[Rfam]
RNA sequence: GAUUUAUACAGAAGUGGCGAGAGCACAGGCUCCCUGACCCACUGGCAACCUUCGACCGCGCGAAAGGUGCCAAUGCCUGCCCGACCAGCCCGAACUUCAGUACGGCGGCGGGGACUAUAACCU
Numbered sequence: 001g002a003u004u005u006a007u008a009c010a011g012a013a014g015u016g017g018c019g020a021g022a023g024c025a026c027a028g029g030c031u032c033c034c035u036g037a038c039c040c041a042c043u044g045g046c047a048a049c050c051u052u053c054g055a056c057c058g059c060g061c062g063a064a065a066g067g068u069g070c071c072a073a074u075g076c077c078u079g080c081c082c083g084a085c086c087a088g089c090c091c092g093a094a095c096u097u098c099a100g101u102a103c104g105g106c107g108g109c110g111g112g113g114a115c116u117a118u119a120a121c122c123u
Stems, first nucleotide, its partner, number of pairs: 001123001004120005013043005021032003026079004044071004049067002051064004075115001080112004085107001

Rfam assigns this 123-nucleotide sequence from Hymenobacter actinosclerus to the family "SAM riboswitch aptamer (S box leader)". The match comes from Rfam's covariance-model search (58 bits). The family's consensus secondary structure is taken from published work.